This 68-nucleotide sequence from Serratia odorifera belongs to the Rfam family "ClpQY promoter". By type it is a cis-regulatory element. It is one of the family's seed sequences. A reference for the family is Lien et al. (2009), "Regulation of clpQ(+)Y(+) (hslV(+)U(+)) gene expression in Escherichia coli", Open Microbiol J.
[Rfam]
RNA sequence: CCUCGUAGUGCCGGUGCCGACCGGCGCUGCGAGGGCUUCUUUCCGUCUGCAACGAGGGUCUGCUCGUG
Numbered sequence: 001c002c003u004c005g006u007a008g009u010g011c012c013g014g015u016g017c018c019g020a021c022c023g024g025c026g027c028u029g030c031g032a033g034g035g036c037u038u039c040u041u042u043c044c045g046u047c048u049g050c051a052a053c054g055a056g057g058g059u060c061u062g063c064u065c066g067u068g
Stems, first nucleotide, its partner, number of pairs: 001034015
Dot-bracket structure: (((((((((((((((....)))))))))))))))..................................